RNA sequence: AAGUCCGAAGGCGGUGGAGUCCGCCACAACCGUCAUGCGCCUGCCGUGGCCAAUGACUCCUGCGGGGUU
Dot-bracket structure: .........[[[[..((((((]]]]......((((((.......))))))....)))))).........
Numbered sequence: 001a002a003g004u005c006c007g008a009a010g011g012c013g014g015u016g017g018a019g020u021c022c023g024c025c026a027c028a029a030c031c032g033u034c035a036u037g038c039g040c041c042u043g044c045c046g047u048g049g050c051c052a053a054u055g056a057c058u059c060c061u062g063c064g065g066g067g068u069u
Stems, first nucleotide, its partner, number of pairs: 010025004016060006032050006
Shown here is a 69-nucleotide RNA, a member of the family "Fluoride riboswitch aptamer (crcB RNA motif)".